[Rfam]
RNA sequence: AUGAGAAUUGCAAGGAUGGAAAUGAUUAACAAUCCAAGUACAGCAUAAAUAAACGUUCUUGUUGUUUACAUCAUUGAUAUUCCUUUCAAUCUAUUAAAUUUUAUUUUUCCUAUUUUCCAGAGUCCAAGGUGUAUUGCCACUUUCAAGCUACUUCGACGGGGUAAAACCCGUC
Numbered sequence: 001a002u003g004a005g006a007a008u009u010g011c012a013a014g015g016a017u018g019g020a021a022a023u024g025a026u027u028a029a030c031a032a033u034c035c036a037a038g039u040a041c042a043g044c045a046u047a048a049a050u051a052a053a054c055g056u057u058c059u060u061g062u063u064g065u066u067u068a069c070a071u072c073a074u075u076g077a078u079a080u081u082c083c084u085u086u087c088a089a090u091c092u093a094u095u096a097a098a099u100u101u102u103a104u105u106u107u108u109c110c111u112a113u114u115u116u117c118c119a120g121a122g123u124c125c126a127a128g129g130u131g132u133a134u135u136g137c138c139a140c141u142u143u144c145a146a147g148c149u150a151c152u153u154c155g156a157c158g159g160g161g162u163a164a165a166a167c168c169c170g171u172c
Stems, first nucleotide, its partner, number of pairs: 001113003005109002007090004012085005017079002021075006028066005035061004040056002119152002121149003126143006155172006
A member of the RNA family "Nitrogen stress-induced RNA 8" from Trichormus variabilis, 172 nucleotides long.
By type it is a small RNA.
The organism belongs to Trichormus variabilis, within Bacteria.
The family's consensus secondary structure was predicted with RNAalifold.
Rfam links the family to the GO term heterocyst differentiation.
The literature on the family includes a 2016 paper in Front Microbiol by Brenes-Alvarez et al., "Identification of Conserved and Potentially Regulatory Small RNAs in Heterocystous Cyanobacteria".